About this RNA: This 104-nucleotide sequence from Vitis rotundifolia belongs to the Rfam family "MIR2275 microRNA precursor family". The match comes from Rfam's covariance-model search (67 bits). Rfam links the family to the GO terms RISC complex and miRNA-mediated post-transcriptional gene silencing.
RNA sequence: AAGCAGUACGUGAGAAUUGGAGGAAAUUAAUCCCAUUAGCAUUAGCAUUAGCAUUGUCAACACAGUAGUGGGUUUAAUUUCCUCCAAUAUCUCAUCUGCUGUUU
Numbered sequence: 001a002a003g004c005a006g007u008a009c010g011u012g013a014g015a016a017u018u019g020g021a022g023g024a025a026a027u028u029a030a031u032c033c034c035a036u037u038a039g040c041a042u043u044a045g046c047a048u049u050a051g052c053a054u055u056g057u058c059a060a061c062a063c064a065g066u067a068g069u070g071g072g073u074u075u076a077a078u079u080u081c082c083u084c085c086a087a088u089a090u091c092u093c094a095u096c097u098g099c100u101g102u103u104u
Base pairs, nucleotide, nucleotide: 004101005100006099007098008097011094012093013092014091016088017087018086019085020084021083023081024080025079026078027077028076029075030074032072033071034070035069036068037067
Dot-bracket structure: ...(((((..((((.((((((.((((((((.((((((.............................)))))).)))))))).))))))..))))..)))))...

The family has 13 seed sequences and 785 matches in Rfam 15.1.